[Rfam]
RNA sequence: CAGAUCACCUCAAUGGAGACACUGAUGAUGCAUGUUCAUAAGUGCUUCUCUUUGGGGUUGUCUUG
Numbered sequence: 001c002a003g004a005u006c007a008c009c010u011c012a013a014u015g016g017a018g019a020c021a022c023u024g025a026u027g028a029u030g031c032a033u034g035u036u037c038a039u040a041a042g043u044g045c046u047u048c049u050c051u052u053u054g055g056g057g058u059u060g061u062c063u064u065g
Stems, first nucleotide, its partner, number of pairs: 004061002007058005013052001015049004020044004025039003
RNA: miR-430 microRNA precursor family
Organism: Collichthys lucidus